[Rfam]
RNA sequence: CCACCCCACCUUUACUCGGAUCGUCCGGCACGUUCCUGCCGGUGAAGGAGAGCACA
Numbered sequence: 001c002c003a004c005c006c007c008a009c010c011u012u013u014a015c016u017c018g019g020a021u022c023g024u025c026c027g028g029c030a031c032g033u034u035c036c037u038g039c040c041g042g043u044g045a046a047g048g049a050g051a052g053c054a055c056a
Stems, first nucleotide, its partner, number of pairs: 009048006025042006